Shown here is a 109-nucleotide RNA sequence from Oryza meridionalis, a member of the family "MIR1846 microRNA precursor family". It scores 90 bits against the family's covariance model. On this family, see Xue et al., Nucleic Acids Res 2009: "Characterization and expression profiles of miRNAs in rice seeds".
Nucleotides: 109
Base pairs, nucleotide, nucleotide: 005105007103008102009101010100011099012098016096017095018094019093021092022091023090024089025088026087027086028085029084031082032081034079035078036077037076038075039074040073041072042071043070046067047066048065051062052061
Number, partner (000 for none) and nucleotide at each position: 001000c002000c003000g004000c005105u006000c007103c008102c009101u010100c011099u012098c013000a014000a015000u016096g017095a018094g019093c020000c021092g022091c023090c024089a025088g026087a027086u028085c029084u030000c031082c032081c033000a034079g035078u036077g037076a038075g039074g040073a041072g042071g043070c044000c045000a046067g047066g048065g049000c050000c051062g052061c053000c054000a055000g056000a057000u058000c059000c060000u061052g062051u063000a064000a065048c066047c067046c068000c069000a070043g071042u072041c073040u074039c075038c076037u077036c078035a079034c080000c081032g082031g083000c084029g085028g086027a087026u088025c089024u090023g091022g092021c093019g094018c095017u096016c097000a098012g099011a100010g101009a102008g103007g104000u105005a106000c107000a108000a109000g